Shown here is a 150-nucleotide RNA from Nocardioides sp. PD653, a member of the family "c-di-AMP riboswitch aptamer (ydaO/yuaA leader)". The source organism's lineage runs through Bacteria, Actinomycetota, Actinomycetes, Nocardioidaceae and Nocardioides. Pairs were carried over by alignment from the consensus structure.

RNA sequence: GACUCAACGACACUCAACGGGCAGGAGUGGGGGAACCACACGUUCUCCGCGGUCCUCGGACCGCUCGGGGUGAAGCCGCCGCACGGUGGCCGGGCACCUUCCUUCGCCCGAACCCGACAGCUCACCUCACAGGCGUGGGAAGGAACCACG
Numbered sequence: 001g002a003c004u005c006a007a008c009g010a011c012a013c014u015c016a017a018c019g020g021g022c023a024g025g026a027g028u029g030g031g032g033g034a035a036c037c038a039c040a041c042g043u044u045c046u047c048c049g050c051g052g053u054c055c056u057c058g059g060a061c062c063g064c065u066c067g068g069g070g071u072g073a074a075g076c077c078g079c080c081g082c083a084c085g086g087u088g089g090c091c092g093g094g095c096a097c098c099u100u101c102c103u104u105c106g107c108c109c110g111a112a113c114c115c116g117a118c119a120g121c122u123c124a125c126c127u128c129a130c131a132g133g134c135g136u137g138g139g140a141a142g143g144a145a146c147c148a149c150g
Stems, first nucleotide, its partner, number of pairs: 004026002027130006037067001068115003076089004092109004